[Rfam]
RNA sequence: UCUCGAUAAAGGCAAAGCAGGCGAAAGCCUGUGACGCAAAGCUUUAGGGGCUAAUGACGCAUGUCGUUUAUGCCAGCCAGCUGCCGAA
Numbered sequence: 001u002c003u004c005g006a007u008a009a010a011g012g013c014a015a016a017g018c019a020g021g022c023g024a025a026a027g028c029c030u031g032u033g034a035c036g037c038a039a040a041g042c043u044u045u046a047g048g049g050g051c052u053a054a055u056g057a058c059g060c061a062u063g064u065c066g067u068u069u070a071u072g073c074c075a076g077c078c079a080g081c082u083g084c085c086g087a088a
Stems, first nucleotide, its partner, number of pairs: 012037002017032006040082004047078002049074003056068004

Rfam assigns this 88-nucleotide sequence from Cohnella luojiensis to the family "c-di-GMP-I riboswitch aptamer". The family's consensus secondary structure is taken from published work.